Rfam assigns this 69-nucleotide sequence from Saccharothrix variisporea to the family "ASpks TB sRNA". The match comes from Rfam's covariance-model search (71 bits). Taxonomically the source falls in Saccharothrix (Bacteria, Actinomycetes, Pseudonocardiales, Pseudonocardiaceae). A reference for the family is Arnvig and Young (2009), "Identification of small RNAs in Mycobacterium tuberculosis", Mol Microbiol. Pairs were carried over by alignment from the consensus structure, which is taken from published work.

[Rfam]
RNA sequence: CUUGACCGAGCCCAGCCACAACGGCUCCGCGCGGUCCUGCCCGUAGGUCGCCAGCAGCUCCUGGGCCUC
Numbered sequence: 001c002u003u004g005a006c007c008g009a010g011c012c013c014a015g016c017c018a019c020a021a022c023g024g025c026u027c028c029g030c031g032c033g034g035u036c037c038u039g040c041c042c043g044u045a046g047g048u049c050g051c052c053a054g055c056a057g058c059u060c061c062u063g064g065g066c067c068u069c
Stems, first nucleotide, its partner, number of pairs: 014026004028065001030063001033058001037054003041050001043048001